[Rfam]
RNA sequence: GACAGAGUAGAUAAUAUGCGUAAAGUGUCAAGGGAUGGAACGUCGCCCUUGAACGAAAAGCAAAUGCUUGCGGCAUAUUAUUGCGUUCGCUGCC
Numbered sequence: 001g002a003c004a005g006a007g008u009a010g011a012u013a014a015u016a017u018g019c020g021u022a023a024a025g026u027g028u029c030a031a032g033g034g035a036u037g038g039a040a041c042g043u044c045g046c047c048c049u050u051g052a053a054c055g056a057a058a059a060g061c062a063a064a065u066g067c068u069u070g071c072g073g074c075a076u077a078u079u080a081u082u083g084c085g086u087u088c089g090c091u092g093c094c
Stems, first nucleotide, its partner, number of pairs: 001094001003092003010082009019072003025054002028052007038088005058069004

Shown here is a 94-nucleotide sequence from Tissierella praeacuta, a member of the family "THF (Tetrahydrofolate) riboswitch aptamer". A search with the family's covariance model found it, with a score of 77 bits. Rfam links the family to the GO term tetrahydrofolate metabolic process.